The record is a 33-nucleotide sequence from Enterococcus malodoratus, which matches "L31-Firmicutes ribosomal protein leader" in Rfam. Pairs were carried over by alignment from the consensus structure, which is taken from published work. Rfam classes the family as a cis-regulatory leader. For this family Rfam cites "Discovery of 20 novel ribosomal leader candidates in bacteria and archaea" (Eckert and Weinberg, BMC Microbiol, 2020). Lineage of the source: Bacteria > Bacillati > Bacillota > Enterococcus > Enterococcus malodoratus.
RNA sequence: CUCUGAACCAGCAAAUGAUUCAGGGCAAAGGAG
Number, nucleotide and partner (000 for none) at each position: 001c025002u024003c023004u022005g021006a020007a019008c000009c000010a000011g000012c000013a000014a000015a000016u000017g000018a000019u007020u006021c005022a004023g003024g002025g001026c000027a000028a000029a000030g000031g000032a000033g000